Shown here is a 79-nucleotide sequence from Roseovarius halotolerans, a member of the family "L2-Alphaproteobacteria ribosomal protein leader". The organism belongs to Roseovarius, within Bacteria.
[Rfam]
RNA sequence: GGCCACCUUUCAAGAGGGGGCUUGAACAUAGGCGGAGAUGCCCGAAGGGCCUUCGCCGUUAGCAAACGGAAGACAGAAA
Numbered sequence: 001g002g003c004c005a006c007c008u009u010u011c012a013a014g015a016g017g018g019g020g021c022u023u024g025a026a027c028a029u030a031g032g033c034g035g036a037g038a039u040g041c042c043c044g045a046a047g048g049g050c051c052u053u054c055g056c057c058g059u060u061a062g063c064a065a066a067c068g069g070a071a072g073a074c075a076g077a078a079a
Stems, first nucleotide, its partner, number of pairs: 001022004006018005031057007